Shown here is a 205-nucleotide RNA from Oryza nivara, a member of the family "MIR812 microRNA precursor family".
The organism belongs to Oryza, within Eukaryota.
Gene Ontology terms of the family: RISC complex and miRNA-mediated post-transcriptional gene silencing.
Rfam 15.1 lists 57,451 matches to the family in 24 species.
[Rfam]
RNA sequence: AAUAAGCAUGGCCUUGAGUUUUCGUGUCCAACUUUAAUCGUUUGUUUUAUUUAAAAAAAGUUAUGAUUAUUAUUUUUAUUAUUAUUAUAUUAUAAAACAUGAAUAGUAUUUUAUGUGAUAUUUAUGUUUUUUUAGUUUUUUUUAAAAAAAAUUAAAUAAGACGGACGAUCAAACUUGGACACAGAAACUCAUGGUUGCGCUUAUU
Numbered sequence: 001a002a003u004a005a006g007c008a009u010g011g012c013c014u015u016g017a018g019u020u021u022u023c024g025u026g027u028c029c030a031a032c033u034u035u036a037a038u039c040g041u042u043u044g045u046u047u048u049a050u051u052u053a054a055a056a057a058a059a060g061u062u063a064u065g066a067u068u069a070u071u072a073u074u075u076u077u078a079u080u081a082u083u084a085u086u087a088u089a090u091u092a093u094a095a096a097a098c099a100u101g102a103a104u105a106g107u108a109u110u111u112u113a114u115g116u117g118a119u120a121u122u123u124a125u126g127u128u129u130u131u132u133u134a135g136u137u138u139u140u141u142u143u144a145a146a147a148a149a150a151a152u153u154a155a156a157u158a159a160g161a162c163g164g165a166c167g168a169u170c171a172a173a174c175u176u177g178g179a180c181a182c183a184g185a186a187a188c189u190c191a192u193g194g195u196u197g198c199g200c201u202u203a204u205u
Stems, first nucleotide, its partner, number of pairs: 027179005033173003037169014